[Rfam]
RNA sequence: AUCCAAAAUACAGUGAUGAUGUAUUUUCCAAGCACAUUGCUCUGUGUGGAGAAUUACUGUUGCUGAGUGAUUUUGGAU
Number, nucleotide and partner (000 for none) at each position: 001a078002u077003c076004c075005a074006a073007a000008a071009u070010a068011c067012a000013g000014u000015g000016a000017u000018g000019a000020u000021g000022u000023a000024u000025u000026u000027u000028c000029c000030a000031a000032g000033c000034a000035c000036a000037u000038u000039g000040c000041u000042c000043u000044g000045u000046g000047u000048g000049g000050a000051g000052a000053a000054u000055u000056a000057c000058u000059g000060u000061u000062g000063c000064u000065g000066a000067g011068u010069g000070a009071u008072u000073u006074u005075g004076g003077a002078u001
RNA: Small nucleolar RNA SNORD121A